Source information
Shown here is a 66-nucleotide sequence from Muromegalovirus muridbeta1, a member of the family "mir-m22-1 microRNA precursor family". The base pairs follow the family's consensus structure, which was predicted with RNAalifold. Its family is annotated with RISC complex and miRNA-mediated post-transcriptional gene silencing in the Gene Ontology.
Nucleotides: 066
Base pairs, nucleotide, nucleotide: 001066002065003064004063005062006061007060008059009058010057013054014053020047021046022045025043026042027041028040
Number, partner (000 for none) and nucleotide at each position: 001066c002065u003064g004063g005062c006061c007060u008059c009058g010057g011000g012000c013054c014053g015000a016000c017000g018000c019000a020047g021046g022045a023000g024000c025043c026042c027041g028040u029000u030000c031000a032000c033000a034000a035000u036000a037000c038000a039000c040028a041027c042026g043025g044000u045022u046021c047020c048000c049000c050000g051000u052000c053014c054013g055000u056000a057010c058009c059008g060007a061006g062005g063004c064003c065002a066001g